[Rfam]
RNA sequence: CUUCGUUCUCAGGGCGGGGUGAAACUCCCCACCGGCGGUAUGCGGCUUUGGCCGCGAGCCCGCGAGCGCCUUCCCGCCAGCGUACUGGAGGAAGGGUCAGCAGACCAGGUGAGAGGCCUGGGCCGACGGUCAUAGUCCGGAUGAGAGAGAACGGAU
Numbered sequence: 001c002u003u004c005g006u007u008c009u010c011a012g013g014g015c016g017g018g019g020u021g022a023a024a025c026u027c028c029c030c031a032c033c034g035g036c037g038g039u040a041u042g043c044g045g046c047u048u049u050g051g052c053c054g055c056g057a058g059c060c061c062g063c064g065a066g067c068g069c070c071u072u073c074c075c076g077c078c079a080g081c082g083u084a085c086u087g088g089a090g091g092a093a094g095g096g097u098c099a100g101c102a103g104a105c106c107a108g109g110u111g112a113g114a115g116g117c118c119u120g121g122g123c124c125g126a127c128g129g130u131c132a133u134a135g136u137c138c139g140g141a142u143g144a145g146a147g148a149g150a151a152c153g154g155a156u
Stems, first nucleotide, its partner, number of pairs: 003154008017029003031136002033125002035063004058123002066101002105121005127139003
This 156-nucleotide RNA sequence from Hartmannibacter diazotrophicus belongs to the Rfam family "FMN riboswitch aptamer (RFN element)". Lineage of the source: Bacteria > Pseudomonadati > Alphaproteobacteria > Hyphomicrobiales > Hartmannibacter. The match comes from Rfam's covariance-model search (111 bits).